Background: This 77-nucleotide sequence from Corticibacter populi belongs to the Rfam family "Xanthine riboswitch aptamer (NMT1 RNA)". Rfam links the family to the GO term purine nucleobase binding. The match comes from Rfam's covariance-model search (42 bits). Pairs were carried over by alignment from the consensus structure, which is taken from published work. Taxonomically the source falls in Corticibacter (Bacteria, Pseudomonadati, Betaproteobacteria, Comamonadaceae).
RNA sequence: GGCAAGAGUAGAAGCGUUCAGCGCGGCGGUCCUUCAGAACCUGUUCACGGCCCCGGCGCCCGGAAAUUGCUCGAUGU
Dot-bracket structure: .....(((((....[..((.((((((..........................))).)))..]))...))))).....